Shown here is a 65-nucleotide RNA sequence from Diabrotica virgifera, a member of the family "mir-2 microRNA precursor family".
A search with the family's covariance model found it, with a score of 50 bits.
Lineage of the source: Eukaryota > Protostomia > Ecdysozoa > Panarthropoda > Diabrotica virgifera.

[Rfam]
RNA sequence: AUGUUCAUCAAUUUGGUUGUGAAUUCUUUUAUUUCAAGAUAUCACAGCCACUUUGAUGAGCUAUG
Numbered sequence: 001a002u003g004u005u006c007a008u009c010a011a012u013u014u015g016g017u018u019g020u021g022a023a024u025u026c027u028u029u030u031a032u033u034u035c036a037a038g039a040u041a042u043c044a045c046a047g048c049c050a051c052u053u054u055g056a057u058g059a060g061c062u063a064u065g
Stems, first nucleotide, its partner, number of pairs: 005059007014050009025041001027039001
Pairs were carried over by alignment from the consensus structure, which was predicted with PFOLD.